[Rfam]
RNA sequence: UCAUCACCAUCAUCCCUGAUUCUUCUUUCAGGCGUUUGGUGUUGCUUGGAAGAUAGGCCUCUUCCGAGUCAAGUACGGUAAAACAAUGACGACCCCUCGGAAGGAUACUUUCGAGGGGUUUAUUUU
Numbered sequence: 001u002c003a004u005c006a007c008c009a010u011c012a013u014c015c016c017u018g019a020u021u022c023u024u025c026u027u028u029c030a031g032g033c034g035u036u037u038g039g040u041g042u043u044g045c046u047u048g049g050a051a052g053a054u055a056g057g058c059c060u061c062u063u064c065c066g067a068g069u070c071a072a073g074u075a076c077g078g079u080a081a082a083a084c085a086a087u088g089a090c091g092a093c094c095c096c097u098c099g100g101a102a103g104g105a106u107a108c109u110u111u112c113g114a115g116g117g118g119u120u121u122a123u124u125u126u
Base pairs, nucleotide, nucleotide: 008044009043012036014034015032016031017030018029019028045068046067047066048065049064050063051062052061088123091120092119093118094117095116096115097114098113099112100111101110102109103108
A member of the RNA family "Histidine operon leader" from Chelonobacter oris, 126 nucleotides long. About the family: At least 6 amino acid operons are known to be regulated by attenuation. In each a leader sequence of 150-200 bp is found upstream of the first gene in the operon. This leader sequence can assume two different secondary structures known as the terminator and the anti-terminator structure. In each case the leader also codes for very short peptide sequence that is rich in the end product amino acid of the operon. Gene Ontology term of the family: histidine biosynthetic process. The family's consensus secondary structure is taken from published work. For this family Rfam cites "Attenuation in amino acid biosynthetic operons" (Kolter and Yanofsky, Annu Rev Genet, 1982). The organism belongs to Chelonobacter, within Bacteria.